[Rfam]
The record is a 140-nucleotide part of an RNA from Rhizoctonia solani, which matches "Eukaryotic large subunit ribosomal RNA" in Rfam. The match comes from Rfam's covariance-model search (3148 bits). The organism belongs to Rhizoctonia, within Eukaryota. For this family Rfam cites "The comparative RNA web (CRW) site: an online database of comparative sequence and structure information for ribosomal, intron, and other RNAs" (Cannone et al., BMC Bioinformatics, 2002).
RNA sequence: GAGUCUAACAUGUCUGCGAGUGUUUGGGUGCAAAACCCGAGCGCGAAAUGAAAGUGAUAGUUGGGAACCUCUUUAGAGGGGCACCGACGCCCGGACCAGACCUUCUGUGACGGAUCCGAGGUAGAGCAUAUAUGUUGGGA
Numbered sequence: 001g002a003g004u005c006u007a008a009c010a011u012g013u014c015u016g017c018g019a020g021u022g023u024u025u026g027g028g029u030g031c032a033a034a035a036c037c038c039g040a041g042c043g044c045g046a047a048a049u050g051a052a053a054g055u056g057a058u059a060g061u062u063g064g065g066a067a068c069c070u071c072u073u074u075a076g077a078g079g080g081g082c083a084c085c086g087a088c089g090c091c092c093g094g095a096c097c098a099g100a101c102c103u104u105c106u107g108u109g110a111c112g113g114a115u116c117c118g119a120g121g122u123a124g125a126g127c128a129u130a131u132a133u134g135u136u137g138g139g140a
Base pairs, nucleotide, nucleotide: 005138006137007136008135009134010133011132012131013130015128016127017126020044021043022042025039026038027037028036029035048055049054060088061087062086063085064084068079069078090121091120092118093117094116096113097112102107